A member of the RNA family "SAM riboswitch aptamer (S box leader)" from Clostridium tyrobutyricum, 106 nucleotides long. The base pairs follow the family's consensus structure, which is taken from published work. The match comes from Rfam's covariance-model search (86 bits).
[Rfam]
RNA sequence: AUCUUAUCGAGAGUGGUGGAGGGACUGGCCCUUUGAAACCCGACAACCAGCAUUUUUAUUUAAGUGCAAGGUGUUAAUUCCAGCAGAAUAUUCUGAAAGAUAAGGA
Numbered sequence: 001a002u003c004u005u006a007u008c009g010a011g012a013g014u015g016g017u018g019g020a021g022g023g024a025c026u027g028g029c030c031c032u033u034u035g036a037a038a039c040c041c042g043a044c045a046a047c048c049a050g051c052a053u054u055u056u057u058a059u060u061u062a063a064g065u066g067c068a069a070g071g072u073g074u075u076a077a078u079u080c081c082a083g084c085a086g087a088a089u090a091u092u093c094u095g096a097a098a099g100a101u102a103a104g105g106a
Stems, first nucleotide, its partner, number of pairs: 002105007013041001015040003021031003025083004042075004047071002050067004079098001084095004